[Rfam]
RNA sequence: CGGCUCCCGGUGCUGGUCCCAUCCACGUGGUCCUGCCCUGCCCUCCGGGAGUGACAGCAACGGGAGUGGAUUGGGGGCUCCUGUCCGAGGGGAUGCAUGAGACCAUGGCUGCCAGUGUAGCA
Numbered sequence: 001c002g003g004c005u006c007c008c009g010g011u012g013c014u015g016g017u018c019c020c021a022u023c024c025a026c027g028u029g030g031u032c033c034u035g036c037c038c039u040g041c042c043c044u045c046c047g048g049g050a051g052u053g054a055c056a057g058c059a060a061c062g063g064g065a066g067u068g069g070a071u072u073g074g075g076g077g078c079u080c081c082u083g084u085c086c087g088a089g090g091g092g093a094u095g096c097a098u099g100a101g102a103c104c105a106u107g108g109c110u111g112c113c114a115g116u117g118u119a120g121c122a
Stems, first nucleotide, its partner, number of pairs: 003052006012041002015038002018035001023030002063118001065116001067114003071108003076104002078101003082097001083094004